Shown here is a 74-nucleotide sequence from Lupinus albus, a member of the family "Small nucleolar RNA Z155". Its family is annotated with nucleolus and RNA processing in the Gene Ontology. The literature on the family includes a 2003 paper in Nucleic Acids Res by Chen et al., "The high diversity of snoRNAs in plants: identification and comparative study of 120 snoRNA genes from Oryza sativa". The family's RNA type in Rfam is C/D-box small nucleolar RNA.

RNA sequence: CAUGGAUGUGAUGAUAUCCUUUUCCGAAUUAUAUAAAUGUGGACUUAUUAAAGACUACAAUUAUCUGAUUCAUG
Numbered sequence: 001c002a003u004g005g006a007u008g009u010g011a012u013g014a015u016a017u018c019c020u021u022u023u024c025c026g027a028a029u030u031a032u033a034u035a036a037a038u039g040u041g042g043a044c045u046u047a048u049u050a051a052a053g054a055c056u057a058c059a060a061u062u063a064u065c066u067g068a069u070u071c072a073u074g
Stems, first nucleotide, its partner, number of pairs: 001074006